[Rfam]
RNA sequence: AUACUUACCUGGCAGGGGAGACACCACAAUCAGGCAGGUGGGUUUCCCAGGGCCAGGCUCAUCCCUGGCACUCUGGAUAUGCUGACCCCUGCGAUUUCCCCAAAUGCGGGAAACUCGACUGCAUAAUUUGUGGUAGUGGGGGACUGUGUUUGUGCUCUCCCCUC
Numbered sequence: 001a002u003a004c005u006u007a008c009c010u011g012g013c014a015g016g017g018g019a020g021a022c023a024c025c026a027c028a029a030u031c032a033g034g035c036a037g038g039u040g041g042g043u044u045u046c047c048c049a050g051g052g053c054c055a056g057g058c059u060c061a062u063c064c065c066u067g068g069c070a071c072u073c074u075g076g077a078u079a080u081g082c083u084g085a086c087c088c089c090u091g092c093g094a095u096u097u098c099c100c101c102a103a104a105u106g107c108g109g110g111a112a113a114c115u116c117g118a119c120u121g122c123a124u125a126a127u128u129u130g131u132g133g134u135a136g137u138g139g140g141g142g143a144c145u146g147u148g149u150u151u152g153u154g155c156u157c158u159c160c161c162c163u164c
Base pairs, nucleotide, nucleotide: 012122013121014120015119016048017047018046019045020044021043024041025040026039027038049090050089051088052087056083057082058081061078062077063076064075092117093116094115095113096112097111099109100108138163139162140161141160142159143158146155147154148153
The record is a 164-nucleotide sequence from Zonotrichia albicollis, which matches "U1 spliceosomal RNA" in Rfam. Rfam describes the family as follows. U1 is a small nuclear RNA (snRNA) component of the spliceosome (involved in pre-mRNA splicing). Its 5' end forms complementary base pairs with the 5' splice junction, thus defining the 5' donor site of an intron. There are significant differences in sequence and secondary structure between metazoan and yeast U1 snRNAs, the latter being much longer (568 nucleotides as compared to 164 nucleotides in human). Nevertheless, secondary structure predictions suggest that all U1 snRNAs share a 'common core' consisting of helices I, II, the proximal region of III, and IV. This family does not contain the larger yeast sequences. It is annotated as a spliceosomal small nuclear RNA. Its family is annotated with U1 snRNP, pre-mRNA 5'-splice site binding and mRNA 5'-splice site recognition in the Gene Ontology. The match comes from Rfam's covariance-model search (140 bits). Pairs were carried over by alignment from the consensus structure, which is taken from published work.